[Rfam]
RNA sequence: GGGAUGUGUCAGGUAGGCAGUGUAUUGCUAGCGGCUGUUAAUGAUUUUAACAGUUGCUAGUUGCACUCCUCUCUGUUGCAUUCA
Numbered sequence: 001g002g003g004a005u006g007u008g009u010c011a012g013g014u015a016g017g018c019a020g021u022g023u024a025u026u027g028c029u030a031g032c033g034g035c036u037g038u039u040a041a042u043g044a045u046u047u048u049a050a051c052a053g054u055u056g057c058u059a060g061u062u063g064c065a066c067u068c069c070u071c072u073c074u075g076u077u078g079c080a081u082u083c084a
Base pairs, nucleotide, nucleotide: 002083003082004081005080006079007078008077010075011074012073013072015070016069017068019067020066021065022064023063024062027061028060029059030058031057032056033054041048

mir-449 microRNA precursor family: an 84-nucleotide RNA sequence from Homo sapiens.
A reference for the family is Linsen et al. (2010), "Small RNA expression and strain specificity in the rat", BMC Genomics.
Lineage of the source: Eukaryota > Deuterostomia > Boreoeutheria > Simiiformes > Homo.